[Rfam]
RNA sequence: CUCAGGGUAGAUUUUGGCGCGUUAAGUGUUGUGGAAACGGAAUGUGGGCCACAAACGAAAAGCUUAAUUGCUUGCGGUGCUAAAAUCACAUUCACUGAA
Numbered sequence: 001c002u003c004a005g006g007g008u009a010g011a012u013u014u015u016g017g018c019g020c021g022u023u024a025a026g027u028g029u030u031g032u033g034g035a036a037a038c039g040g041a042a043u044g045u046g047g048g049c050c051a052c053a054a055a056c057g058a059a060a061a062g063c064u065u066a067a068u069u070g071c072u073u074g075c076g077g078u079g080c081u082a083a084a085a086u087c088a089c090a091u092u093c094a095c096u097g098a099a
Stems, first nucleotide, its partner, number of pairs: 002098004010087010020076003026056002029054006040093005060073004
Record summary:
Rfam assigns this 99-nucleotide sequence from Periweissella cryptocerci to the family "THF (Tetrahydrofolate) riboswitch aptamer". Rfam describes the family as follows. Tetrahydrofolate (THF) riboswitch was first reported for Ames et al. as an RNA motif in 5' untranslated (5'-UTR)regions of folate transport and biosynthesis genes in Firmicutes genomes. Its family is annotated with tetrahydrofolate metabolic process in the Gene Ontology. Pairs were carried over by alignment from the consensus structure, which is taken from published work. A search with the family's covariance model found it, with a score of 79 bits.